[Rfam]
RNA: MIR5269 microRNA precursor family
Organism: Medicago truncatula
RNA sequence: UUGGUUUAAAUCAUUGUGAGUCUACACUUUGAAAAUUGAACCUAAACAAAGUGACGAGACAUACAUUGAUUUGAUCCAA
Numbered sequence: 001u002u003g004g005u006u007u008a009a010a011u012c013a014u015u016g017u018g019a020g021u022c023u024a025c026a027c028u029u030u031g032a033a034a035a036u037u038g039a040a041c042c043u044a045a046a047c048a049a050a051g052u053g054a055c056g057a058g059a060c061a062u063a064c065a066u067u068g069a070u071u072u073g074a075u076c077c078a079a
Stems, first nucleotide, its partner, number of pairs: 001079004006074008015065004023056001025053007